[Rfam]
isrJ Hfq binding RNA: a 66-nucleotide RNA sequence from Salmonella enterica. The family's consensus secondary structure was predicted with RNAalifold. The family's RNA type in Rfam is small RNA. A reference for the family is Padalon-Brauch et al. (2008), "Small RNAs encoded within genetic islands of Salmonella typhimurium show host-induced expression and role in virulence", Nucleic Acids Res. The match comes from Rfam's covariance-model search (38 bits).
RNA sequence: GCUUUUGCUGAUCGCGCCGGAGCGGUAACCGGCAACAAUUCAAGCCUCGCCAUCGUGCGGGGCUUU
Numbered sequence: 001g002c003u004u005u006u007g008c009u010g011a012u013c014g015c016g017c018c019g020g021a022g023c024g025g026u027a028a029c030c031g032g033c034a035a036c037a038a039u040u041c042a043a044g045c046c047u048c049g050c051c052a053u054c055g056u057g058c059g060g061g062g063c064u065u066u
Base pairs, nucleotide, nucleotide: 007033008032009031010030042065043064044063045062046061047060048059049058050057